[Rfam]
RNA sequence: GCCGGUCCUCGGUAGUGGCCCCCGGGCCUUGCGAACCCGGGUGCUUCGAUCGAAGACCGGC
Numbered sequence: 001g002c003c004g005g006u007c008c009u010c011g012g013u014a015g016u017g018g019c020c021c022c023c024g025g026g027c028c029u030u031g032c033g034a035a036c037c038c039g040g041g042u043g044c045u046u047c048g049a050u051c052g053a054a055g056a057c058c059g060g061c
Stems, first nucleotide, its partner, number of pairs: 001061007009053005017045003021041006029033001